A member of the RNA family "MIR530 microRNA precursor family" from Salix dunnii, 148 nucleotides long. Gene Ontology terms of the family: RISC complex and miRNA-mediated post-transcriptional gene silencing. The organism belongs to Salix, within Eukaryota. The family's consensus secondary structure was predicted with WAR. The family has 3 seed sequences and 119 matches in Rfam 15.1.
RNA sequence: GCCAAUAUGUUGCCUUUAUCUGCAUUUGCACCUGCAUCUUGUUAUUUUGACUCCAUAACCAAAGUCAAGUUCAUACUGUUCAUCAGAUAUGGAGAUUAAUAAGCUCAGUUGAGGUGCAGGUGCAGGUGCAGGUGAAUGCCAUUUUGGU
Numbered sequence: 001g002c003c004a005a006u007a008u009g010u011u012g013c014c015u016u017u018a019u020c021u022g023c024a025u026u027u028g029c030a031c032c033u034g035c036a037u038c039u040u041g042u043u044a045u046u047u048u049g050a051c052u053c054c055a056u057a058a059c060c061a062a063a064g065u066c067a068a069g070u071u072c073a074u075a076c077u078g079u080u081c082a083u084c085a086g087a088u089a090u091g092g093a094g095a096u097u098a099a100u101a102a103g104c105u106c107a108g109u110u111g112a113g114g115u116g117c118a119g120g121u122g123c124a125g126g127u128g129c130a131g132g133u134g135a136a137u138g139c140c141a142u143u144u145u146g147g148u
Stems, first nucleotide, its partner, number of pairs: 001148005007142003012139002015136025048055002